[Rfam]
RNA: Group II catalytic intron D1-D4-6
Organism: Microbulbifer rhizosphaerae
RNA sequence: CCAGUCCCACCAAGACCAAAGCCUAGCCAGCAGGUCAGUAGUGAAGCCCAGGUGCGAUCUUGGUAACAAGGUGUGCGGAGCAAGGGUGGAGCGAGAGUGUAGGCCAUCUAUUGAGCCCCGAAAUAUUGUAGAGUCGCGGUCACUGGAUAACCGUCGAACGACGGGAAAGCCGACGGACUGCAGCGUACCGGAAGGCAACAGUCUCAGCAGUGCCAUGGCAAGCUGCUGCGACACCGCCGGGGUCUGGGAACA
Numbered sequence: 001c002c003a004g005u006c007c008c009a010c011c012a013a014g015a016c017c018a019a020a021g022c023c024u025a026g027c028c029a030g031c032a033g034g035u036c037a038g039u040a041g042u043g044a045a046g047c048c049c050a051g052g053u054g055c056g057a058u059c060u061u062g063g064u065a066a067c068a069a070g071g072u073g074u075g076c077g078g079a080g081c082a083a084g085g086g087u088g089g090a091g092c093g094a095g096a097g098u099g100u101a102g103g104c105c106a107u108c109u110a111u112u113g114a115g116c117c118c119c120g121a122a123a124u125a126u127u128g129u130a131g132a133g134u135c136g137c138g139g140u141c142a143c144u145g146g147a148u149a150a151c152c153g154u155c156g157a158a159c160g161a162c163g164g165g166a167a168a169g170c171c172g173a174c175g176g177a178c179u180g181c182a183g184c185g186u187a188c189c190g191g192a193a194g195g196c197a198a199c200a201g202u203c204u205c206a207g208c209a210g211u212g213c214c215a216u217g218g219c220a221a222g223c224u225g226c227u228g229c230g231a232c233a234c235c236g237c238c239g240g241g242g243u244c245u246g247g248g249a250a251c252a
Base pairs, nucleotide, nucleotide: 014035016033021031022030024221026219027218039094041092042091045087047085048084052076053075054074055073057072058071059070060069061068062067112246113244115243116242117241118240119239120238136237137236138235139234140233169196170195171194174190175189176188201232202231203230205228206227207226208225209224210223211222
Dot-bracket structure: .............(.(....((.[.[[..)).).)...(.((..(.((...((((.((((((....)))))))))).......)).)...)).).................((.((((((...............(((((............................(((..(((...........)))...)))....(((.(((((((......]].]))))))).))))))))))))))).)......